[Rfam]
RNA sequence: AAAGGAAAAAUAGAUAUACCUCAUAUAAUUUCGGGAAUAUGGCCCGAUCGUUUCUACCCAUUACCGUAAAUGAUGGACUAUGAGGGAGGAUGAACGUAUU
Numbered sequence: 001a002a003a004g005g006a007a008a009a010a011u012a013g014a015u016a017u018a019c020c021u022c023a024u025a026u027a028a029u030u031u032c033g034g035g036a037a038u039a040u041g042g043c044c045c046g047a048u049c050g051u052u053u054c055u056a057c058c059c060a061u062u063a064c065c066g067u068a069a070a071u072g073a074u075g076g077a078c079u080a081u082g083a084g085g086g087a088g089g090a091u092g093a094a095c096g097u098a099u100u
Base pairs, nucleotide, nucleotide: 019085020084021083022082023081024080025079031047032046033045034044035043058076059075060074061073062072063071
Notes: The family of this 100-nucleotide RNA from Terrihalobacillus insolitus is "Purine riboswitch aptamer". The match comes from Rfam's covariance-model search (83 bits). NCBI's taxonomy places the organism under Bacteria, Bacillota, Caryophanales, Bacillaceae, Terrihalobacillus. About the family: Riboswitches are metabolite binding domains within certain messenger RNAs that serve as precision sensors for their corresponding targets.